[Rfam]
RNA: Flavo-1 RNA
Organism: Pedobacter polaris
RNA sequence: UUAUAGCCCCAAUUGAAGCGACAUCCUUUUUUGUUCCUUCGACUACGCUCAAGAUGACAACAAAAAAGAUAUAGCGGAAAGCGGGACUGAUU
Numbered sequence: 001u002u003a004u005a006g007c008c009c010c011a012a013u014u015g016a017a018g019c020g021a022c023a024u025c026c027u028u029u030u031u032u033g034u035u036c037c038u039u040c041g042a043c044u045a046c047g048c049u050c051a052a053g054a055u056g057a058c059a060a061c062a063a064a065a066a067a068g069a070u071a072u073a074g075c076g077g078a079a080a081g082c083g084g085g086a087c088u089g090a091u092u
Stems, first nucleotide, its partner, number of pairs: 009084002013080002018075002023070003029065007